[Rfam]
RNA sequence: UGACGGGGGCCCGCACAAGCGGUGGAGCAUGUGGUUUAAUUCGACGCAACGCGAAGAACCUUACCUGGAUUUGACAUCCUGGGAAUCCUAUCGAAAGACUGGAGUGCCCUUCGGGGAGCCCGGAGACAGGUGCUGCAUGGCUGUCGUCAGCUCGUGUCGUGAGAUGUUGGGUUAAGUCCCGCAACGAGCGCAACCCUUGUCUUUAGUUACCAUCAUUCAGUUGGGGACUCUAAAGAUACUGCCCCGGUCAACGGGGAGGAAGGUGGGGAUGACGUCAAGUCCUCAUGGCCUUUAUGUCCAGGGCUACACACGUGCUACAAUGGGCGGUACAAAGGGUCGCGAACCCGCGAGGGUAAGCCAAUCCCAAAAAGCCGUCCCAAGUUCGGAUUGGAGUCUGCAACUCGACUCCAUGAAGCUGGAAUCGCUAGUAAUCGCGGAUCAGCAUGCCGCGGUGAAUACGUUCCCGGGCCUUGUACACACCGCCCGUCACACCAUGAGAGUUGGUUGUACCAGAAGUCGUCGGGCUAACCUUUCGAGGAUGCAGGCGCCUAAGGUAUGGCUGAUAAUUAGGGUGAAGUCGUAACAAGG
Numbered sequence: 001u002g003a004c005g006g007g008g009g010c011c012c013g014c015a016c017a018a019g020c021g022g023u024g025g026a027g028c029a030u031g032u033g034g035u036u037u038a039a040u041u042c043g044a045c046g047c048a049a050c051g052c053g054a055a056g057a058a059c060c061u062u063a064c065c066u067g068g069a070u071u072u073g074a075c076a077u078c079c080u081g082g083g084a085a086u087c088c089u090a091u092c093g094a095a096a097g098a099c100u101g102g103a104g105u106g107c108c109c110u111u112c113g114g115g116g117a118g119c120c121c122g123g124a125g126a127c128a129g130g131u132g133c134u135g136c137a138u139g140g141c142u143g144u145c146g147u148c149a150g151c152u153c154g155u156g157u158c159g160u161g162a163g164a165u166g167u168u169g170g171g172u173u174a175a176g177u178c179c180c181g182c183a184a185c186g187a188g189c190g191c192a193a194c195c196c197u198u199g200u201c202u203u204u205a206g207u208u209a210c211c212a213u214c215a216u217u218c219a220g221u222u223g224g225g226g227a228c229u230c231u232a233a234a235g236a237u238a239c240u241g242c243c244c245c246g247g248u249c250a251a252c253g254g255g256g257a258g259g260a261a262g263g264u265g266g267g268g269a270u271g272a273c274g275u276c277a278a279g280u281c282c283u284c285a286u287g288g289c290c291u292u293u294a295u296g297u298c299c300a301g302g303g304c305u306a307c308a309c310a311c312g313u314g315c316u317a318c319a320a321u322g323g324g325c326g327g328u329a330c331a332a333a334g335g336g337u338c339g340c341g342a343a344c345c346c347g348c349g350a351g352g353g354u355a356a357g358c359c360a361a362u363c364c365c366a367a368a369a370a371g372c373c374g375u376c377c378c379a380a381g382u383u384c385g386g387a388u389u390g391g392a393g394u395c396u397g398c399a400a401c402u403c404g405a406c407u408c409c410a411u412g413a414a415g416c417u418g419g420a421a422u423c424g425c426u427a428g429u430a431a432u433c434g435c436g437g438a439u440c441a442g443c444a445u446g447c448c449g450c451g452g453u454g455a456a457u458a459c460g461u462u463c464c465c466g467g468g469c470c471u472u473g474u475a476c477a478c479a480c481c482g483c484c485c486g487u488c489a490c491a492c493c494a495u496g497a498g499a500g501u502u503g504g505u506u507g508u509a510c511c512a513g514a515a516g517u518c519g520u521c522g523g524g525c526u527a528a529c530c531u532u533u534c535g536a537g538g539a540u541g542c543a544g545g546c547g548c549c550u551a552a553g554g555u556a557u558g559g560c561u562g563a564u565a566a567u568u569a570g571g572g573u574g575a576a577g578u579c580g581u582a583a584c585a586a587g588g
Stems, first nucleotide, its partner, number of pairs: 001477002003474003007471007015461002019425005024318001026316008034307002040055004064302007077126002079123005086103003091098002105118001107116002129291002132289004138285002140280003143276001145274002150189006156165003168181004195268004200236007210225002214223002239259002242256005322377007334365003339358002344353003384415001389410007431453007480587001482584001485580002490574004495569003500564012516549001518547004524542002529538002